[Rfam]
RNA sequence: GGCCGGCAAAAUCCAAUCACCACCUCCUCGCGGUGUCGGCUGGAAACAAGAUCCUCUGGAACUUGGCCAACGGUGAUGG
Numbered sequence: 001g002g003c004c005g006g007c008a009a010a011a012u013c014c015a016a017u018c019a020c021c022a023c024c025u026c027c028u029c030g031c032g033g034u035g036u037c038g039g040c041u042g043g044a045a046a047c048a049a050g051a052u053c054c055u056c057u058g059g060a061a062c063u064u065g066g067c068c069a070a071c072g073g074u075g076a077u078g079g
Stems, first nucleotide, its partner, number of pairs: 013079003017076005022034003047065004052060003
Shown here is a 79-nucleotide RNA from Oreochromis aureus, a member of the family "drz-agam-1 ribozyme". Gene Ontology term of the family: catalytic activity. Lineage of the source: Eukaryota > Euteleostomi > Neopterygii > African cichlids > Oreochromis. It scores 48 bits against the family's covariance model. Pairs were carried over by alignment from the consensus structure, which is taken from published work.